Shown here is a 93-nucleotide sequence from Pelagimonas varians, a member of the family "Glycine riboswitch aptamer". The base pairs follow the family's consensus structure. A search with the family's covariance model found it, with a score of 52 bits.
RNA sequence: GCCACCAUGACGGGAGAACUGGCCCUUUGCAGGGACAGUGCCGAAGGAGCAACCGCCCCGGAAACUCUCAGGCUUCAGGACCGCCAUGGGCCA
Number, nucleotide and partner (000 for none) at each position: 001g000002c000003c000004a000005c000006c088007a087008u086009g085010a000011c083012g082013g081014g000015a000016g000017a000018a000019c038020u037021g036022g000023c000024c000025c000026u000027u000028u000029g000030c000031a000032g000033g000034g000035a000036c021037a020038g019039u000040g073041c072042c071043g069044a068045a000046g000047g067048a066049g065050c000051a000052a000053c061054c060055g000056c000057c000058c000059c000060g054061g053062a000063a000064a000065c049066u048067c047068u044069c043070a000071g042072g041073c040074u000075u000076c000077a000078g000079g000080a000081c013082c012083g011084c000085c009086a008087u007088g006089g000090g000091c000092c000093a000